[Rfam]
Record summary: ZMP/ZTP riboswitch aptamer (pfl RNA motif): a 116-nucleotide RNA from Pseudoclavibacter caeni. The match comes from Rfam's covariance-model search (41 bits). Taxonomically the source falls in Pseudoclavibacter (Bacteria, Bacillati, Actinomycetota, Actinomycetes).
RNA sequence: CGAUGCCGUCGCGACUGGCGUUCCCGUCGCGCCACGGCGUGCCGUGGGCCGGCGGAUGAAGAUGGGCACCAUCGGGGAGCGACACACGGAUUGGGCCGCGCGCCUGGGCCUCGACA
Numbered sequence: 001c002g003a004u005g006c007c008g009u010c011g012c013g014a015c016u017g018g019c020g021u022u023c024c025c026g027u028c029g030c031g032c033c034a035c036g037g038c039g040u041g042c043c044g045u046g047g048g049c050c051g052g053c054g055g056a057u058g059a060a061g062a063u064g065g066g067c068a069c070c071a072u073c074g075g076g077g078a079g080c081g082a083c084a085c086a087c088g089g090a091u092u093g094g095g096c097c098g099c100g101c102g103c104c105u106g107g108g109c110c111u112c113g114a115c116a
Stems, first nucleotide, its partner, number of pairs: 008083005015076002017104005062072004093111005